[Rfam]
RNA sequence: AGGUGAGGUAGAGGUCGCAGGAUUUAUGAGUAGAUUGAAAGAGAGCCAGAGUACUCAAAGACGUCAGUCGAAAGGAAAUACUGCCGAAGCGCUGCAAAAUCUCUGUUUGCAGUAUGGCUGGGACUGUAGCCGAACAGGUGCAGGACUGUCAUGGCCAAGCCAUGAUGAACUAUCCGUUUC
Number, nucleotide and partner (000 for none) at each position: 001a000002g000003g000004u000005g000006a000007g174008g173009u172010a171011g170012a000013g000014g000015u000016c000017g084018c083019a082020g081021g000022a079023u078024u077025u076026a000027u000028g000029a000030g000031u000032a000033g069034a068035u067036u066037g065038a064039a000040a000041g000042a000043g000044a000045g000046c000047c000048a000049g000050a000051g000052u000053a000054c000055u000056c000057a000058a000059a000060g000061a000062c000063g000064u038065c037066a036067g035068u034069c033070g000071a000072a000073a000074g000075g000076a025077a024078a023079u022080a000081c020082u019083g018084c017085c000086g000087a000088a119089g118090c117091g113092c112093u111094g110095c109096a108097a107098a106099a000100u000101c000102u000103c000104u000105g000106u098107u097108u096109g095110c094111a093112g092113u091114a000115u000116g000117g090118c089119u088120g147121g146122g000123a000124c143125u142126g141127u140128a139129g000130c137131c000132g000133a000134a000135c000136a000137g130138g000139u128140g127141c126142a125143g124144g000145a000146c121147u120148g000149u165150c164151a163152u162153g161154g160155c159156c000157a000158a000159g155160c154161c153162a152163u151164g150165a149166u000167g000168a000169a000170c011171u010172a009173u008174c007175c000176g000177u000178u000179u000180c000